The family of this 99-nucleotide RNA sequence is "SAM-I/IV (S-adenosyl methionine) riboswitch aptamer". The base pairs follow the family's consensus structure, which is taken from published work. It is one of the family's seed sequences.

RNA sequence: AUCCUGUAUCAAGAGCAGAGUUAAUUCUCUCUCCAACCUGCUAACUUCUAGCAAGGUGGAACAAAUGAUACGGCUAUUCACGCAACUAAAAGGAGAUCA
Numbered sequence: 001a002u003c004c005u006g007u008a009u010c011a012a013g014a015g016c017a018g019a020g021u022u023a024a025u026u027c028u029c030u031c032u033c034c035a036a037c038c039u040g041c042u043a044a045c046u047u048c049u050a051g052c053a054a055g056g057u058g059g060a061a062c063a064a065a066u067g068a069u070a071c072g073g074c075u076a077u078u079c080a081c082g083c084a085a086c087u088a089a090a091a092g093g094a095g096a097u098c099a
Stems, first nucleotide, its partner, number of pairs: 006071005015031001017030004032060003037056003040052003046093002073083002075080001